[Rfam]
RNA: c-di-AMP riboswitch aptamer (ydaO/yuaA leader)
RNA sequence: CGCACUUUACCGCUUAAUCUUUGUAAGAACGGGGGAACCAUCUUUGUGGCCGUUAGGCUGCUAGGGGUGAAUCCUUUCACGGAAGGGCCAGUUUCCAGGUCCUAACCCGACAGCUAACCCCGUCAGCGUCUUAGGGAACAGUU
Number, nucleotide and partner (000 for none) at each position: 001c000002g000003c000004a000005c000006u000007u000008u000009a000010c000011c128012g127013c126014u125015u000016a000017a000018u028019c027020u026021u000022u000023g000024u000025a000026a020027g019028a018029a123030c122031g121032g120033g119034g118035g000036a000037a000038c000039c064040a000041u000042c000043u000044u000045u000046g000047u000048g000049g000050c000051c000052g000053u000054u000055a000056g000057g000058c000059u000060g000061c000062u000063a000064g039065g108066g107067g106068u000069g000070a000071a000072u000073c082074c081075u000076u000077u000078c000079a000080c000081g074082g073083a000084a000085g102086g101087g100088c099089c000090a000091g000092u000093u000094u000095c000096c000097a000098g000099g088100u087101c086102c085103u000104a000105a000106c067107c066108c065109g000110a000111c000112a000113g000114c000115u000116a000117a000118c034119c033120c032121c031122g030123u029124c000125a014126g013127c012128g011129u000130c000131u000132u000133a000134g000135g000136g000137a000138a000139c000140a000141g000142u000143u000